[Rfam]
RNA sequence: CCCGCCAAGGGGCGCUGCAUGCCAGGCGCAAGGCCCGGCUCAGGCUUGGCGGAUGUCCUUCAAGGACAGCCCUCGCGAACCGCGCCCGAUUUGC
Numbered sequence: 001c002c003c004g005c006c007a008a009g010g011g012g013c014g015c016u017g018c019a020u021g022c023c024a025g026g027c028g029c030a031a032g033g034c035c036c037g038g039c040u041c042a043g044g045c046u047u048g049g050c051g052g053a054u055g056u057c058c059u060u061c062a063a064g065g066a067c068a069g070c071c072c073u074c075g076c077g078a079a080c081c082g083c084g085c086c087c088g089a090u091u092u093g094c
Stems, first nucleotide, its partner, number of pairs: 002052007021039003025035002